[Rfam]
RNA sequence: UUGUGUGCUGGAAUCUCUAGUUCUGCUCCUCGUUCUUUCGGGAACAAGAUUGUCUGUGGCAUGUUAUAUAAAAUAAAGGAGUUUAGAGAGCCACCAGUCAUAUAGUGAAGAUUAAGUGGUAUUCUUUCUUGUACAGAA
Numbered sequence: 001u002u003g004u005g006u007g008c009u010g011g012a013a014u015c016u017c018u019a020g021u022u023c024u025g026c027u028c029c030u031c032g033u034u035c036u037u038u039c040g041g042g043a044a045c046a047a048g049a050u051u052g053u054c055u056g057u058g059g060c061a062u063g064u065u066a067u068a069u070a071a072a073a074u075a076a077a078g079g080a081g082u083u084u085a086g087a088g089a090g091c092c093a094c095c096a097g098u099c100a101u102a103u104a105g106u107g108a109a110g111a112u113u114a115a116g117u118g119g120u121a122u123u124c125u126u127u128c129u130u131g132u133a134c135a136g137a138a
Stems, first nucleotide, its partner, number of pairs: 003064006022048001024046002027043003079130003090120002094116001096113004101108001
RNA: Small nucleolar RNA U109
Organism: Suricata suricatta